RNA sequence: GUGCAUAUAGUAGGAAUUCAACCUACGAAUUCGCCAAUUAUGAGCUGGAUGCUUUAACCAUUUGGCCAUGGAUGC
Numbered sequence: 001g002u003g004c005a006u007a008u009a010g011u012a013g014g015a016a017u018u019c020a021a022c023c024u025a026c027g028a029a030u031u032c033g034c035c036a037a038u039u040a041u042g043a044g045c046u047g048g049a050u051g052c053u054u055u056a057a058c059c060a061u062u063u064g065g066c067c068a069u070g071g072a073u074g075c
Base pairs, nucleotide, nucleotide: 003075004074005073006072008070010026011025012024013023014022040069041068042067044066045065046064047063048062049061050060051059
RNA: Plastid-ycf2 5UTR RNA